This 290-nucleotide sequence from Hyaloscypha hepaticicola belongs to the Rfam family "A. fumigatus sRNA Afu_309".
It is annotated as a small RNA.
The family's consensus secondary structure was predicted with WAR.
The family has 10 seed sequences and 663 matches in Rfam 15.1.
NCBI's taxonomy places the organism under Eukaryota, Pezizomycotina, sordariomyceta, Helotiales, Hyaloscypha hepaticicola/Rhizoscyphus ericae species complex.
RNA sequence: CUUUCUUCCACAACCACAGAUUUGUGCCCAGUGGUCCCUUCAGCCCUCUGCUUGCAGUCGUGCUGUAAGGUUGACUGCUGAGGCAGCUCGAUCGUUCUAUGGAGCCAUCACUUUCACUGGUGUCAAUCAUCCGAUCGACAAAUCUCAGAGGAAUCGGUCCUUCGAAGCCUGAAUUCGCUGUAAAAGGCUUGAGCUCGGUGGACGAGUGUACUGAGGGCGCCAUAUUCCACUUCUCUUUACCGAUGACCGUUGGUCUGUGACGUUAGGGAAAAAUCAUGGCAUCUACAUUU
Number, nucleotide and partner (000 for none) at each position: 001c000002u000003u000004u000005c000006u000007u000008c000009c000010a000011c000012a000013a000014c000015c000016a000017c000018a145019g144020a143021u142022u141023u140024g139025u138026g084027c083028c082029c080030a079031g078032u000033g076034g075035u074036c073037c070038c069039u068040u067041c065042a064043g063044c062045c000046c060047u000048c057049u056050g055051c000052u000053u000054g000055c050056a049057g048058u000059c000060g046061u000062g044063c043064u042065g041066u000067a040068a039069g038070g037071u000072u000073g036074a035075c034076u033077g000078c031079u030080g029081a000082g028083g027084c026085a000086g000087c000088u000089c000090g000091a000092u000093c137094g136095u000096u134097c133098u000099a000100u125101g124102g123103a000104g121105c120106c119107a000108u000109c000110a000111c000112u000113u000114u000115c000116a000117c000118u000119g106120g105121u104122g000123u102124c101125a100126a000127u000128c000129a000130u000131c000132c000133g097134a096135u000136c094137g093138a025139c024140a023141a022142a021143u020144c019145u018146c000147a000148g000149a000150g000151g000152a000153a000154u000155c000156g000157g211158u210159c000160c000161u000162u000163c000164g000165a000166a199167g000168c198169c197170u000171g196172a195173a000174u193175u192176c191177g188178c187179u000180g000181u000182a000183a000184a000185a000186g000187g178188c177189u000190u000191g176192a175193g174194c000195u172196c171197g169198g168199u166200g000201g000202a000203c000204g000205a000206g000207u000208g000209u000210a158211c157212u000213g000214a000215g000216g283217g282218c000219g280220c279221c278222a277223u276224a000225u000226u000227c000228c000229a000230c000231u000232u269233c268234u267235c266236u265237u000238u000239a263240c262241c000242g000243a000244u000245g255246a254247c253248c252249g000250u000251u000252g248253g247254u246255c245256u000257g000258u000259g000260a000261c000262g240263u239264u000265a236266g235267g234268g233269a232270a000271a000272a000273a000274u000275c000276a223277u222278g221279g220280c219281a000282u217283c216284u000285a000286c000287a000288u000289u000290u000